[Rfam]
RNA sequence: CGGCGAUCGGGUCUUUCGAGUGGAGAAGAGAGUGUGGGAGUUGGCGGACAUGGAGUGUUCCACCAUGAACCUCGUCUGCCACUCUCAUCUCGUCCACCCGCUCGAGAGGUUGCGAUCGUC
Numbered sequence: 001c002g003g004c005g006a007u008c009g010g011g012u013c014u015u016u017c018g019a020g021u022g023g024a025g026a027a028g029a030g031a032g033u034g035u036g037g038g039a040g041u042u043g044g045c046g047g048a049c050a051u052g053g054a055g056u057g058u059u060c061c062a063c064c065a066u067g068a069a070c071c072u073c074g075u076c077u078g079c080c081a082c083u084c085u086c087a088u089c090u091c092g093u094c095c096a097c098c099c100g101c102u103c104g105a106g107a108g109g110u111u112g113c114g115a116u117c118g119u120c
Stems, first nucleotide, its partner, number of pairs: 002120008011111001012109010022097001028094002030091003034088008043080007053073003057070004